[Rfam]
RNA sequence: GGCCUUAUGCAUAUGAGCCGAGAUUUCAUCAGACACCAGACCGUCAGGACUGAUGAGGCUCCCAAGAUAAGUAAAACG
Numbered sequence: 001g002g003c004c005u006u007a008u009g010c011a012u013a014u015g016a017g018c019c020g021a022g023a024u025u026u027c028a029u030c031a032g033a034c035a036c037c038a039g040a041c042c043g044u045c046a047g048g049a050c051u052g053a054u055g056a057g058g059c060u061c062c063c064a065a066g067a068u069a070a071g072u073a074a075a076a077c078g
Base pairs, nucleotide, nucleotide: 002077005074006073008071011068012067017062020061021060022059024058025057026056027055028054029053030052
Rfam assigns this 78-nucleotide RNA from Schistosoma japonicum to the family "mir-3492 microRNA precursor family". Lineage of the source: Eukaryota > Protostomia > Rhabditophora > Trematoda > Schistosoma. The family's consensus secondary structure was predicted with RNAalifold.